[Rfam]
RNA: Molybdenum/Tungsten riboswitch aptamer (Moco RNA motif)
Organism: Pseudohaemophilus paraphrohaemolyticus
RNA sequence: UAUUUUUUAUGACUCCGAGCUUGCUUGCCUAAGUUCUAUACCUAAUAUUGGAUAUGGCAAACUCGCCAGUAGCAAGAAAUUGCUCAAUGGUUCGCAAAGAAAUGAACGAUCCACUCGUGUUUAGAAAGGUGUCUUUUUUAUGCAAAG
Numbered sequence: 001u002a003u004u005u006u007u008u009a010u011g012a013c014u015c016c017g018a019g020c021u022u023g024c025u026u027g028c029c030u031a032a033g034u035u036c037u038a039u040a041c042c043u044a045a046u047a048u049u050g051g052a053u054a055u056g057g058c059a060a061a062c063u064c065g066c067c068a069g070u071a072g073c074a075a076g077a078a079a080u081u082g083c084u085c086a087a088u089g090g091u092u093c094g095c096a097a098a099g100a101a102a103u104g105a106a107c108g109a110u111c112c113a114c115u116c117g118u119g120u121u122u123a124g125a126a127a128g129g130u131g132u133c134u135u136u137u138u139u140a141u142g143c144a145a146a147g
Stems, first nucleotide, its partner, number of pairs: 004140001011133003015129002019066002023062001025060005033053004068084005088113003092109003098103001114124002